[Rfam]
RNA sequence: GGACACGACUCUGGAGAGUCCCAUUCAAUUGGGCGCCGAAGGGGCAAAAAUGGCUGACCGGGCCAUUCCAAUCUCUCAGGCAAAAGGACAGGGCUGGCAUU
Numbered sequence: 001g002g003a004c005a006c007g008a009c010u011c012u013g014g015a016g017a018g019u020c021c022c023a024u025u026c027a028a029u030u031g032g033g034c035g036c037c038g039a040a041g042g043g044g045c046a047a048a049a050a051u052g053g054c055u056g057a058c059c060g061g062g063c064c065a066u067u068c069c070a071a072u073c074u075c076u077c078a079g080g081c082a083a084a085a086g087g088a089c090a091g092g093g094c095u096g097g098c099a100u101u
Stems, first nucleotide, its partner, number of pairs: 006096002009093005020033004035081003038077002042075003049067007